[Rfam]
Notes: A member of the RNA family "sok antitoxin (CssrC)" from Escherichia coli, 167 nucleotides long. The base pairs follow the family's consensus structure, which is taken from published work. The match comes from Rfam's covariance-model search (112 bits). Also identified in Shigella as CssrC. Lineage of the source: Bacteria > Enterobacterales > Enterobacteriaceae > Escherichia coli > Escherichia coli O127:H6. It is annotated as an antitoxin RNA.
RNA sequence: GGGUGCUUGAGGCUAUCUGUCUCAGGCAUGAACACCAAAGGCAGAUAGAGAAAAGCCCCAGUUAACAUUACGCGUCCUGCAAGACGCUUAACAUUAAUCUGAGGCCAAUUUCAUGCUAGACACAUGUAGGUUAGCCUCUUACGUGCCGGAAGGCAAGGAGAUGUAUG
Numbered sequence: 001g002g003g004u005g006c007u008u009g010a011g012g013c014u015a016u017c018u019g020u021c022u023c024a025g026g027c028a029u030g031a032a033c034a035c036c037a038a039a040g041g042c043a044g045a046u047a048g049a050g051a052a053a054a055g056c057c058c059c060a061g062u063u064a065a066c067a068u069u070a071c072g073c074g075u076c077c078u079g080c081a082a083g084a085c086g087c088u089u090a091a092c093a094u095u096a097a098u099c100u101g102a103g104g105c106c107a108a109u110u111u112c113a114u115g116c117u118a119g120a121c122a123c124a125u126g127u128a129g130g131u132u133a134g135c136c137u138c139u140u141a142c143g144u145g146c147c148g149g150a151a152g153g154c155a156a157g158g159a160g161a162u163g164u165a166u167g
Stems, first nucleotide, its partner, number of pairs: 001059003005056004013048010026035001060100002063097001064095002068091002101138005108131004112126004146160001